[Rfam]
RNA: L31-Actinobacteria ribosomal protein leader
RNA sequence: CUGGUUCCGGUUCACGCCCGCCAUUGGGGUUGGCGACCCGGGUCC
Numbered sequence: 001c002u003g004g005u006u007c008c009g010g011u012u013c014a015c016g017c018c019c020g021c022c023a024u025u026g027g028g029g030u031u032g033g034c035g036a037c038c039c040g041g042g043u044c045c
Stems, first nucleotide, its partner, number of pairs: 003045002007041004015035004020030003